[Rfam]
RNA sequence: CUGACGACCGCGUCCGGGUCAAUUGCGGACUGCAACACCCGAUCUCCCUGCUCGUCCCGCCGUCGAUGGCGGUCGAGGAGGGGGAGCGCGUCACAGUCAG
Numbered sequence: 001c002u003g004a005c006g007a008c009c010g011c012g013u014c015c016g017g018g019u020c021a022a023u024u025g026c027g028g029a030c031u032g033c034a035a036c037a038c039c040c041g042a043u044c045u046c047c048c049u050g051c052u053c054g055u056c057c058c059g060c061c062g063u064c065g066a067u068g069g070c071g072g073u074c075g076a077g078g079a080g081g082g083g084g085a086g087c088g089c090g091u092c093a094c095a096g097u098c099a100g
Stems, first nucleotide, its partner, number of pairs: 001100005009090005015041004023035005045085005051080003055076001
RNA: L4-Archaeoglobi ribosomal protein leades